Background: Rfam assigns this 83-nucleotide RNA from Pan troglodytes to the family "mir-1299 microRNA precursor family". The match comes from Rfam's covariance-model search (90 bits). The organism belongs to Pan, within Eukaryota.
[Rfam]
RNA sequence: CCUCAUAGCAGUGUUCUUGAAUGCUAUGUGAGGGACAAACAUUCAGACCCCAGCAGCAGUGUUCUUGAAUGCUGUGUGAGGGA
Number, nucleotide and partner (000 for none) at each position: 001c081002c080003u079004c078005a077006u076007a075008g000009c074010a073011g072012u000013g070014u069015u068016c067017u000018u000019g064020a063021a062022u061023g000024c059025u058026a000027u056028g054029u053030g000031a000032g050033g049034g048035a000036c000037a000038a000039a000040c000041a000042u000043u000044c000045a000046g000047a000048c034049c033050c032051c000052a000053g029054c028055a000056g027057c000058a025059g024060u000061g022062u021063u020064c019065u000066u000067g016068a015069a014070u013071g000072c011073u010074g009075u007076g006077u005078g004079a003080g002081g001082g000083a000